[Rfam]
RNA sequence: AAGUCAUUCUAGCAUUUCCCACGUUCAUAUUGAUGUUAAUAAAUCUAGAUAAACAUCAAUAUGAACGUGGGAAAUGCUAGAAUGACUU
Number, nucleotide and partner (000 for none) at each position: 001a088002a087003g086004u000005c084006a083007u082008u000009c000010u081011a078012g077013c076014a075015u074016u073017u072018c071019c000020c000021a000022c000023g000024u065025u000026c063027a062028u061029a060030u059031u058032g057033a056034u000035g000036u000037u000038a000039a000040u000041a000042a000043a000044u000045c000046u000047a000048g000049a000050u000051a000052a000053a000054c000055a000056u033057c032058a031059a030060u029061a028062u027063g026064a000065a024066c000067g000068u000069g000070g000071g018072a017073a016074a015075u014076g013077c012078u011079a000080g000081a010082a007083u006084g005085a000086c003087u002088u001
mir-16 microRNA precursor family: an 88-nucleotide RNA sequence from Oryza nivara. On this family, see Calin et al., Proc Natl Acad Sci U S A 2002: "Frequent deletions and down-regulation of micro- RNA genes miR15 and miR16 at 13q14 in chronic lymphocytic leukemia". The family is grouped with related families in Rfam's "mir-15 clan". The source organism's lineage runs through Eukaryota, Viridiplantae, Embryophyta, Oryzinae and Oryza. Pairs were carried over by alignment from the consensus structure, which was predicted with PFOLD. The family has 14 seed sequences and 4,705 matches in Rfam 15.1.